This 275-nucleotide RNA sequence from Moschus moschiferus belongs to the Rfam family "Small Cajal body specific RNA 6".
On this family, see Huttenhofer et al., EMBO J 2001: "RNomics: an experimental approach that identifies 201 candidates for novel, small, non-messenger RNAs in mouse".
From the family's description: U88 is small Cajal body specific RNA (scaRNA). scaRNAs are a novel class of small nuclear RNAs which localise to the Cajal bodies. U88 is found associated with both fibrillarin and Gar1p and co-localises with coilin in Cajal bodies.
Its family is annotated with RNA processing and nucleolus in the Gene Ontology.
The organism belongs to Moschus, within Eukaryota.
It is annotated as a small Cajal body RNA.

RNA sequence: GGUCAGUGAUGAUUGGUAAAAGGUCUGAUUGCACGUAAGGUCACAGUCCCUGCCCUGCCCGCAGCUCCCAGCAGCCCAGUUUCACCCCCAUCACAUUGAAGUCGCGUGUAUGGGGUAAUGGAGCAGCUGACAACAUGGGGUUCUGUCAGUGCGUGUUUCUGAAGAGUCGACAGUGCACAGCUGACCAGUAUCCAACAAAACCAGCUACUCAGGAGCUUGAUGAGCGGCAGCCAUGGGCGUGAUGGUGCAUGAUCUCAAGUUUUCAAUCUGAGACC
Numbered sequence: 001g002g003u004c005a006g007u008g009a010u011g012a013u014u015g016g017u018a019a020a021a022g023g024u025c026u027g028a029u030u031g032c033a034c035g036u037a038a039g040g041u042c043a044c045a046g047u048c049c050c051u052g053c054c055c056u057g058c059c060c061g062c063a064g065c066u067c068c069c070a071g072c073a074g075c076c077c078a079g080u081u082u083c084a085c086c087c088c089c090a091u092c093a094c095a096u097u098g099a100a101g102u103c104g105c106g107u108g109u110a111u112g113g114g115g116u117a118a119u120g121g122a123g124c125a126g127c128u129g130a131c132a133a134c135a136u137g138g139g140g141u142u143c144u145g146u147c148a149g150u151g152c153g154u155g156u157u158u159c160u161g162a163a164g165a166g167u168c169g170a171c172a173g174u175g176c177a178c179a180g181c182u183g184a185c186c187a188g189u190a191u192c193c194a195a196c197a198a199a200a201c202c203a204g205c206u207a208c209u210c211a212g213g214a215g216c217u218u219g220a221u222g223a224g225c226g227g228c229a230g231c232c233a234u235g236g237g238c239g240u241g242a243u244g245g246u247g248c249a250u251g252a253u254c255u256c257a258a259g260u261u262u263u264c265a266a267u268c269u270g271a272g273a274c275c
Stems, first nucleotide, its partner, number of pairs: 001275004038255005047229001049227002052225002065215004069129004074124002087114005093109004137193001139192003143188002153178004158173001160170001